[Rfam]
RNA sequence: GAGAACUAACAAUCUAAUAGGUAGAAUGAUGGAGUAACGCCCUAAAAUGCCUACACUGAUACUCCGAUUGGCAAUAAAUAUUAGACUAAUUUAUUGUCAAAAGCUCGGUGAAGUCGGCAGAGAGUAGCCGUAAAUAGCUAUAUAGUUAUACGAAACCUGUUUAGAGGUAAAUGGUGCUACUUAUAUGCCGGGUGUCGAAUAC
Numbered sequence: 001g002a003g004a005a006c007u008a009a010c011a012a013u014c015u016a017a018u019a020g021g022u023a024g025a026a027u028g029a030u031g032g033a034g035u036a037a038c039g040c041c042c043u044a045a046a047a048u049g050c051c052u053a054c055a056c057u058g059a060u061a062c063u064c065c066g067a068u069u070g071g072c073a074a075u076a077a078a079u080a081u082u083a084g085a086c087u088a089a090u091u092u093a094u095u096g097u098c099a100a101a102a103g104c105u106c107g108g109u110g111a112a113g114u115c116g117g118c119a120g121a122g123a124g125u126a127g128c129c130g131u132a133a134a135u136a137g138c139u140a141u142a143u144a145g146u147u148a149u150a151c152g153a154a155a156c157c158u159g160u161u162u163a164g165a166g167g168u169a170a171a172u173g174g175u176g177c178u179a180c181u182u183a184u185a186u187g188c189c190g191g192g193u194g195u196c197g198a199a200u201a202c
Stems, first nucleotide, its partner, number of pairs: 018053006031043002034040001054194004064108004068100011115190005123181006129152003133147002157174007
Annotation:
This 202-nucleotide sequence from Anaerococcus lactolyticus belongs to the Rfam family "Group II catalytic intron D1-D4-5". Rfam's curators put it in the seed alignment. Group II introns are found in rRNA, tRNA and mRNA of organelles in fungi, plants and protists, and also in mRNA in bacteria.